[Rfam]
Rfam assigns this 110-nucleotide sequence to the family "SAM (S-adenosyl methionine) riboswitch aptamer".

RNA sequence: GGUCAUGAGUUCCAGUGCGCAGCCCCGGCUUGCUGGACGGCACCCCGCUCCGCUGCGGGUGCUCCGGGUGACGACCUGCCCCGUGCGCGAGGUACGGGGAACAGCGGACC
Numbered sequence: 001g002g003u004c005a006u007g008a009g010u011u012c013c014a015g016u017g018c019g020c021a022g023c024c025c026c027g028g029c030u031u032g033c034u035g036g037a038c039g040g041c042a043c044c045c046c047g048c049u050c051c052g053c054u055g056c057g058g059g060u061g062c063u064c065c066g067g068g069u070g071a072c073g074a075c076c077u078g079c080c081c082c083g084u085g086c087g088c089g090a091g092g093u094a095c096g097g098g099g100a101a102c103a104g105c106g107g108a109c110c
Base pairs, nucleotide, nucleotide: 001076002075003074004073009038011037012036013035014034015033016032021030022029039063040062041061044059045058046057048055079099080098081097082096083095084094085093086092
About the family: SAM-IV is a mRNA element that regulates gene expression via direct sensing of S-adenosylmethionine (SAM or AdoMet). SAM-IV riboswitches share conserved nucleotide positions with the previously described SAM-I riboswitches sequence analysis and molecular recognition experiments suggest that SAM-I and SAM-IV riboswitches share similar ligand binding sites, but have different scaffolds.
The family's consensus secondary structure is taken from published work.